[Rfam]
RNA: Glycine riboswitch aptamer
Organism: Fretibacterium sp. OH1220_COT-178
RNA sequence: AAGAAGGAUAUGAGAGAGAUCCCAUUCGCCCCGACGGGGCGGAGGGGACGCCGAAGGGGCAAGUGCUUCGGGCACGGAAACUCUCAGGCAAAAGGAUCGUAUCCGGACA
Dot-bracket structure: .....((((((((......((((.....................)))).(((((..(((....((.........))....))))).))).......)))))))).....
Numbered sequence: 001a002a003g004a005a006g007g008a009u010a011u012g013a014g015a016g017a018g019a020u021c022c023c024a025u026u027c028g029c030c031c032c033g034a035c036g037g038g039g040c041g042g043a044g045g046g047g048a049c050g051c052c053g054a055a056g057g058g059g060c061a062a063g064u065g066c067u068u069c070g071g072g073c074a075c076g077g078a079a080a081c082u083c084u085c086a087g088g089c090a091a092a093a094g095g096a097u098c099g100u101a102u103c104c105g106g107a108c109a
Stems, first nucleotide, its partner, number of pairs: 006104008020048004050089003053085002057083003064076002